[Rfam]
RNA: t44 RNA
Organism: Methyloprofundus sp.
RNA sequence: AUAAGUUCAUUUAACAAAACUCACAUCUAUCGUCACAGUUGGUAGGGUGCCGAUUUUUUAUUAAAUUGGUUUCCAAUUGGGGUGGGUGGUGGCGUAAC
Numbered sequence: 001a002u003a004a005g006u007u008c009a010u011u012u013a014a015c016a017a018a019a020c021u022c023a024c025a026u027c028u029a030u031c032g033u034c035a036c037a038g039u040u041g042g043u044a045g046g047g048u049g050c051c052g053a054u055u056u057u058u059u060a061u062u063a064a065a066u067u068g069g070u071u072u073c074c075a076a077u078u079g080g081g082g083u084g085g086g087u088g089g090u091g092g093c094g095u096a097a098c
Stems, first nucleotide, its partner, number of pairs: 024088008036079007044071001049070005